[Rfam]
RNA sequence: UGAAUUAACCAAUGUAAGUCGCUCUGAAUAAGAGUGUCUGCUAAAUGACUAACA
Numbered sequence: 001u002g003a004a005u006u007a008a009c010c011a012a013u014g015u016a017a018g019u020c021g022c023u024c025u026g027a028a029u030a031a032g033a034g035u036g037u038c039u040g041c042u043a044a045a046u047g048a049c050u051a052a053c054a
Stems, first nucleotide, its partner, number of pairs: 013043001014041003020036006
RNA: UnaL2 LINE 3' element
Organism: Oncorhynchus kisutch